[Rfam]
This 178-nucleotide RNA sequence from Lachnotalea glycerini belongs to the Rfam family "Lysine riboswitch aptamer". The source organism's lineage runs through Bacteria, Bacillati, Lachnospirales, Lachnospiraceae and Lachnotalea.
RNA sequence: UGCUUUGGUAGAGGUUGCGUUUAACAUGAGUAAAUUAUCUGAUAUGUCAGGCAUAGAGGAGGGUAAUUGAAAGGGAAAAACGCCGAAGUAAUAUAUAUCCUGUGUAUAUUUUGCUGGGCAUGCGAUAAAUAAUUGUAUGACUGUCAUCUUAAAUUUAAGAUGGUGCGCUAUCUGGAAG
Number, nucleotide and partner (000 for none) at each position: 001u000002g000003c000004u000005u000006u000007g172008g171009u170010a169011g168012a000013g000014g000015u000016u000017g083018c082019g081020u080021u079022u078023a000024a000025c075026a000027u000028g000029a000030g000031u000032a000033a068034a067035u066036u065037a064038u063039c062040u061041g000042a000043u000044a000045u000046g000047u000048c000049a000050g000051g000052c000053a000054u000055a000056g000057a000058g000059g000060a000061g040062g039063g038064u037065a036066a035067u034068u033069g000070a000071a000072a000073g000074g000075g025076a000077a000078a022079a021080a020081c019082g018083c017084c000085g000086a000087a115088g114089u113090a112091a111092u000093a109094u108095a107096u106097a105098u104099c000100c000101u000102g000103u000104g098105u097106a096107u095108a094109u093110u000111u091112u090113g089114c088115u087116g142117g141118g000119c139120a138121u137122g136123c135124g134125a133126u132127a000128a000129a000130u000131a000132a126133u125134u124135g123136u122137a121138u120139g119140a000141c117142u116143g000144u163145c162146a161147u160148c159149u158150u157151a000152a000153a000154u000155u000156u000157a150158a149159g148160a147161u146162g145163g144164u000165g000166c000167g000168c011169u010170a009171u008172c007173u000174g000175g000176a000177a000178g000
Pairs were carried over by alignment from the consensus structure, which is taken from published work. A search with the family's covariance model found it, with a score of 124 bits. Rfam links the family to the GO term lysine biosynthetic process.